[Rfam]
Nucleotides: 304
Base pairs, nucleotide, nucleotide: 001040002039003038004023005022006021007020008019009018010017028037029036030035044303045302048299049298050297051296052295053294056291057290058288060287061285062284063283065281066280069279070278071277072276073275075273076272077271078270079263080262081261082260083259084258085257087255090253091252093251098249099248100247101246102245103244104243105242107237108236110235111234112233113232114231116228117227118226120224121223122222123221124220126165127164128163129162130161131160132159133158134157135156137154138153140151141150142149143148172219173218174217175216176215177214182211184209185208186207191202192201193200
Number, partner (000 for none) and nucleotide at each position: 001040g002039c003038c004023g005022a006021g007020c008019u009018g010017a011000g012000u013000a014000g015000c016000g017010u018009u019008a020007g021006c022005u023004u024000g025000u026000g027000a028037c029036c030035c031000a032000a033000g034000u035030g036029g037028g038003g039002g040001c041000a042000a043000u044303a045302a046000c047000u048299u049298g050297a051296u052295g053294g054000g055000a056291c057290a058288a059000g060287u061285a062284c063283a064000u065281g066280g067000u068000u069279u070278c071277g072276c073275u074000u075273g076272g077271c078270u079263g080262g081261g082260c083259u084258u085257g086000u087255g088000u089000u090253g091252g092000c093251u094000u095000u096000a097000c098249g099248u100247g101246g102245c103244c104243u105242g106000c107237c108236u109000a110235c111234u112233c113232c114231a115000a116228g117227u118226u119000u120224a121223g122222a123221g124220u125000u126165g127164a128163a129162u130161u131160a132159u133158g134157g135156g136000u137154c138153u139000u140151g141150g142149g143148c144000u145000u146000a147000a148143g149142c150141u151140c152000u153138g154137g155000u156135c157134u158133c159132a160131u161130g162129g163128u164127u165126c166000c167000u168000a169000g170000a171000c172219u173218g174217g175216a176215g177214g178000g179000c180000a181000a182211u183000g184209c185208g186207u187000g188000a189000g190000g191202c192201u193200g194000g195000u196000u197000u198000c199000a200193c201192a202191g203000a204000g205000c206000a207186g208185c209184g210000a211182a212000u213000a214177c215176c216175u217174c218173c219172g220124g221123c222122u223121c224120u225000u226118a227117a228116c229000a230000g231114u232113g233112g234111a235110g236108g237107g238000a239000u240000a241000a242105c243104g244103g245102g246101c247100c248099a249098c250000u251093g252091c253090u254000u255087c256000u257085c258084a259083a260082g261081c262080c263079c264000g265000c266000a267000a268000u269000g270078g271077g272076c273075c274000u275073g276072g277071u278070g279069a280066u281065c282000c283063u284062g285061u286000u287060g288058u289000u290057u291056g292000a293000a294053c295052c296051a297050u298049c299048a300000u301000u302045u303044u304000u

The family of this 304-nucleotide RNA sequence from Lupinus albus is "Plant signal recognition particle RNA".
NCBI's taxonomy places the organism under Eukaryota, Viridiplantae, Magnoliopsida, Gunneridae, Lupinus.
The family's RNA type in Rfam is non-coding RNA gene.
The match comes from Rfam's covariance-model search (240 bits).